[Rfam]
RNA sequence: UUAAAUUUGCUCUGCUAAUGGGGUAAUAACCGAGACUCCUUUCGCGAUUACACAGGCUCUCCGACCCAACUCCUAUUCCGUCACGUCCUCGUCUUACAGAGUGGUAACUUUCCCCACCACAUAUCCAAGCUUGGAUACACGGGCCUGUCCCAACCCCUUGGGCGGAUGGUGGAGCAAUGCCAAACAUGAGGGGG
Numbered sequence: 001u002u003a004a005a006u007u008u009g010c011u012c013u014g015c016u017a018a019u020g021g022g023g024u025a026a027u028a029a030c031c032g033a034g035a036c037u038c039c040u041u042u043c044g045c046g047a048u049u050a051c052a053c054a055g056g057c058u059c060u061c062c063g064a065c066c067c068a069a070c071u072c073c074u075a076u077u078c079c080g081u082c083a084c085g086u087c088c089u090c091g092u093c094u095u096a097c098a099g100a101g102u103g104g105u106a107a108c109u110u111u112c113c114c115c116a117c118c119a120c121a122u123a124u125c126c127a128a129g130c131u132u133g134g135a136u137a138c139a140c141g142g143g144c145c146u147g148u149c150c151c152a153a154c155c156c157c158u159u160g161g162g163c164g165g166a167u168g169g170u171g172g173a174g175c176a177a178u179g180c181c182a183a184a185c186a187u188g189a190g191g192g193g194g
Stems, first nucleotide, its partner, number of pairs: 009102006021067004028060001030056002071194004076190002079188003083095001085093001087104002108179001110177002113174001115171004123167004131153004135148002155162002
RNA: drz-agam-2-2 ribozyme